RNA sequence: CGUCGGCUAGCUUAUCUGACUGGUGUUGGCUGUUAUACGAAUAAGGCAACAUCAGUCGGUAAGCUGGCUGAAG
Numbered sequence: 001c002g003u004c005g006g007c008u009a010g011c012u013u014a015u016c017u018g019a020c021u022g023g024u025g026u027u028g029g030c031u032g033u034u035a036u037a038c039g040a041a042u043a044a045g046g047c048a049a050c051a052u053c054a055g056u057c058g059g060u061a062a063g064c065u066g067g068c069u070g071a072a073g
Stems, first nucleotide, its partner, number of pairs: 008066008018057005024051005030045001
Dot-bracket structure: .......((((((((..(((((.(((((.(..............).))))).))))).)))))))).......